[Rfam]
RNA: Small nucleolar RNA SNORA17
RNA sequence: ACUGCCACUGUUCAUCUCUUGCAGGCGUGGCUGCAGUGCCACGUUUGUGUCAUUCGGUGGCAGAGAGGAUAAGGCGAGGUCUUCCCCUGGUGCUCUGACCCACGUGGGCUCCCAGGAUUGCUCAACAACC
Numbered sequence: 001a002c003u004g005c006c007a008c009u010g011u012u013c014a015u016c017u018c019u020u021g022c023a024g025g026c027g028u029g030g031c032u033g034c035a036g037u038g039c040c041a042c043g044u045u046u047g048u049g050u051c052a053u054u055c056g057g058u059g060g061c062a063g064a065g066a067g068g069a070u071a072a073g074g075c076g077a078g079g080u081c082u083u084c085c086c087c088u089g090g091u092g093c094u095c096u097g098a099c100c101c102a103c104g105u106g107g108g109c110u111c112c113c114a115g116g117a118u119u120g121c122u123c124a125a126c127a128a129c130c
Stems, first nucleotide, its partner, number of pairs: 002063005008057003016049001021048004026043006073126001076123003083117003089113002092109004